[Rfam]
RNA sequence: GCUGACCUACCUUUGGUUACAACCCAGGACAUGGGAGCUGCACUAGAACGCUCGUGUCUUGUGUUGCAGCCAGAGGUGAUCA
Numbered sequence: 001g002c003u004g005a006c007c008u009a010c011c012u013u014u015g016g017u018u019a020c021a022a023c024c025c026a027g028g029a030c031a032u033g034g035g036a037g038c039u040g041c042a043c044u045a046g047a048a049c050g051c052u053c054g055u056g057u058c059u060u061g062u063g064u065u066g067c068a069g070c071c072a073g074a075g076g077u078g079a080u081c082a
Base pairs, nucleotide, nucleotide: 011075012074015071016070017069018068020066021065022064023063025061026060027059028058029057030056032054033053034052035051

Rfam assigns this 82-nucleotide RNA sequence from Eleutherodactylus coqui to the family "mir-187 microRNA precursor family".
Its family is annotated with RISC complex and miRNA-mediated post-transcriptional gene silencing in the Gene Ontology.
The base pairs follow the family's consensus structure, which was predicted with RNAalifold.
Taxonomically the source falls in Eleutherodactylus (Eukaryota, Metazoa, Vertebrata, Eleutherodactylidae).
For this family Rfam cites "The developmental miRNA profiles of zebrafish as determined by small RNA cloning" (Chen et al., Genes Dev, 2005).